[Rfam]
Rfam assigns this 227-nucleotide sequence from Plectonema radiosum to the family "HNH endonuclease-associated RNA and ORF (HEARO) RNA". It scores 140 bits against the family's covariance model. Taxonomically the source falls in Plectonema radiosum (Bacteria, Oscillatoriophycideae, Oscillatoriales, Plectonema).

RNA sequence: GUCAACAACCCAGGUCUAAAGAUACGCUCGCUUCUAGCUUAUAGAUUUAGACAUUAGUUGACCAGACUAAGGAUUAAAUUCCUACGUUACUGGCAAGAGUUAAAGACCUACCAGUGGAUGCGAAGCUAGUCUACUGCUCUAGAAUCAAACAAUUAAACAUCUUUAUAGGGUUAAGGAAGUGUUGUUUGAAAAGUACGGACCAGUAACAUUGUCGAAGCUAACAUCAC
Numbered sequence: 001g002u003c004a005a006c007a008a009c010c011c012a013g014g015u016c017u018a019a020a021g022a023u024a025c026g027c028u029c030g031c032u033u034c035u036a037g038c039u040u041a042u043a044g045a046u047u048u049a050g051a052c053a054u055u056a057g058u059u060g061a062c063c064a065g066a067c068u069a070a071g072g073a074u075u076a077a078a079u080u081c082c083u084a085c086g087u088u089a090c091u092g093g094c095a096a097g098a099g100u101u102a103a104a105g106a107c108c109u110a111c112c113a114g115u116g117g118a119u120g121c122g123a124a125g126c127u128a129g130u131c132u133a134c135u136g137c138u139c140u141a142g143a144a145u146c147a148a149a150c151a152a153u154u155a156a157a158c159a160u161c162u163u164u165a166u167a168g169g170g171u172u173a174a175g176g177a178a179g180u181g182u183u184g185u186u187u188g189a190a191a192a193g194u195a196c197g198g199a200c201c202a203g204u205a206a207c208a209u210u211g212u213c214g215a216a217g218c219u220a221a222c223a224u225c226a227c
Stems, first nucleotide, its partner, number of pairs: 001062006008055001012028002015022002033051004065213003069209001070083004086207006099200003108142002112136008124219004145189009157180002160177006